The family of this 211-nucleotide RNA sequence from Oryza sativa is "MIR812 microRNA precursor family". It scores 83 bits against the family's covariance model. The organism belongs to Oryza sativa, within Eukaryota.

[Rfam]
RNA sequence: CCUCCGUCCAUACAUAUACAUAUACGUGCUAAGCGUUUUGACCAUCCAUCUUAUUUGAAAAUUUUAUGAGAAAUAUUAAAAAAAUUAGUCACACAUAAAUUACUAUUCAUGUUUUAUAUCUAAUAAAAAUAAAAAUACUAAUCAUAAUCUUUUUUUAUAUAAGACGAAUGGUCAAACGUUGGACAUGAACAGUGCUAAAACUACACUUAGG
Numbered sequence: 001c002c003u004c005c006g007u008c009c010a011u012a013c014a015u016a017u018a019c020a021u022a023u024a025c026g027u028g029c030u031a032a033g034c035g036u037u038u039u040g041a042c043c044a045u046c047c048a049u050c051u052u053a054u055u056u057g058a059a060a061a062u063u064u065u066a067u068g069a070g071a072a073a074u075a076u077u078a079a080a081a082a083a084a085u086u087a088g089u090c091a092c093a094c095a096u097a098a099a100u101u102a103c104u105a106u107u108c109a110u111g112u113u114u115u116a117u118a119u120c121u122a123a124u125a126a127a128a129a130u131a132a133a134a135a136u137a138c139u140a141a142u143c144a145u146a147a148u149c150u151u152u153u154u155u156u157a158u159a160u161a162a163g164a165c166g167a168a169u170g171g172u173c174a175a176a177c178g179u180u181g182g183a184c185a186u187g188a189a190c191a192g193u194g195c196u197a198a199a200a201c202u203a204c205a206c207u208u209a210g211g
Base pairs, nucleotide, nucleotide: 030182032180033179034178037176038175039174040173041172042171043170044169045168047166049164050163051162052161053160054159